[Rfam]
Rfam assigns this 81-nucleotide sequence from Conger conger to the family "mir-459 microRNA precursor family". A search with the family's covariance model found it, with a score of 78 bits. The family's consensus secondary structure was predicted with RNAalifold. Its family is annotated with miRNA-mediated post-transcriptional gene silencing and RISC complex in the Gene Ontology.

RNA sequence: CCUUCCGCCAUCAGUAACAAGGAUUCAUCCUGUUGUGAAGUUCUGACCAAACAGGAAAUCCGUGUUACUGGGGGUGAGGGU
Numbered sequence: 001c002c003u004u005c006c007g008c009c010a011u012c013a014g015u016a017a018c019a020a021g022g023a024u025u026c027a028u029c030c031u032g033u034u035g036u037g038a039a040g041u042u043c044u045g046a047c048c049a050a051a052c053a054g055g056a057a058a059u060c061c062g063u064g065u066u067a068c069u070g071g072g073g074g075u076g077a078g079g080g081u
Stems, first nucleotide, its partner, number of pairs: 011071009021061005029055006037048001